[Rfam]
RNA: Selenocysteine transfer RNA
RNA sequence: GUCAGGGUGAGUCGGGCUGGUGCUCGGACUAGAAUUCAAUUCUAAGGGGCCUGGGGACAUAUAGGAGUUCGAUUCUCCCUCCUUGAC
Numbered sequence: 001g002u003c004a005g006g007g008u009g010a011g012u013c014g015g016g017c018u019g020g021u022g023c024u025c026g027g028a029c030u031a032g033a034a035u036u037c038a039a040u041u042c043u044a045a046g047g048g049g050c051c052u053g054g055g056g057a058c059a060u061a062u063a064g065g066a067g068u069u070c071g072a073u074u075c076u077c078c079c080u081c082c083u084u085g086a087c
Stems, first nucleotide, its partner, number of pairs: 001087007009079001012027006030044004048060001051056001064078004